[Rfam]
RNA sequence: CAACAUUCUUGGGGGUGCCAUAUAUAUGGAUCUGUGUAAGCAGAAUAUCGUGUAUAGGCUGAGAUGAUACCCGUAACCUGAUCCGGAUAAUGCUGGCGUAGGGAAAAGAAGUCUUCAUCAUA
Numbered sequence: 001c002a003a004c005a006u007u008c009u010u011g012g013g014g015g016u017g018c019c020a021u022a023u024a025u026a027u028g029g030a031u032c033u034g035u036g037u038a039a040g041c042a043g044a045a046u047a048u049c050g051u052g053u054a055u056a057g058g059c060u061g062a063g064a065u066g067a068u069a070c071c072c073g074u075a076a077c078c079u080g081a082u083c084c085g086g087a088u089a090a091u092g093c094u095g096g097c098g099u100a101g102g103g104a105a106a107a108g109a110a111g112u113c114u115u116c117a118u119c120a121u122a
Base pairs, nucleotide, nucleotide: 006110007109008108009107010106012072013071014070016067017059018058019057077102078101079100080099083096084095085094086093

This 122-nucleotide RNA from Porphyromonas sp. COT-108 OH1349 belongs to the Rfam family "TPP riboswitch aptamer (THI element)". A search with the family's covariance model found it, with a score of 56 bits. The organism belongs to Porphyromonas, within Bacteria.